[Rfam]
RNA sequence: UUGCAAUGAUGACUUGAUUCUGUCAAUCCCCUGAGUGCAAUCGCUGAUGUCAGAGUGUCUCUGAGCAA
Numbered sequence: 001u002u003g004c005a006a007u008g009a010u011g012a013c014u015u016g017a018u019u020c021u022g023u024c025a026a027u028c029c030c031c032u033g034a035g036u037g038c039a040a041u042c043g044c045u046g047a048u049g050u051c052a053g054a055g056u057g058u059c060u061c062u063g064a065g066c067a068a
Base pairs, nucleotide, nucleotide: 001068002067003066004065